[Rfam]
RNA sequence: AAAGGAGCAAUAGUCAUUUUCUUGUUUUAUCAAGAGGGUGCUACUGCUCUCUUUUUU
Numbered sequence: 001a002a003a004g005g006a007g008c009a010a011u012a013g014u015c016a017u018u019u020u021c022u023u024g025u026u027u028u029a030u031c032a033a034g035a036g037g038g039u040g041c042u043a044c045u046g047c048u049c050u051c052u053u054u055u056u057u
Stems, first nucleotide, its partner, number of pairs: 001053002004050006011043004019036006